[Rfam]
Rfam assigns this 100-nucleotide sequence from Salsuginibacillus halophilus to the family "Purine riboswitch aptamer".

RNA sequence: GUGGAGAAAAUAAGAAUCCUUCGUAUAUGCAUAAGGAUACGGCUUGUGCGUUUCUACCAUUCACCGUAAAUGAAUGUCUACGAAGGCAGUAACGUCUGCG
Numbered sequence: 001g002u003g004g005a006g007a008a009a010a011u012a013a014g015a016a017u018c019c020u021u022c023g024u025a026u027a028u029g030c031a032u033a034a035g036g037a038u039a040c041g042g043c044u045u046g047u048g049c050g051u052u053u054c055u056a057c058c059a060u061u062c063a064c065c066g067u068a069a070a071u072g073a074a075u076g077u078c079u080a081c082g083a084a085g086g087c088a089g090u091a092a093c094g095u096c097u098g099c100g
Base pairs, nucleotide, nucleotide: 018086019085020084021083022082023081024080025079029049030048031047032046033045034044035043058076059075060074061073062072063071
The base pairs follow the family's consensus structure, which is taken from published work. Gene Ontology term of the family: purine nucleobase biosynthetic process.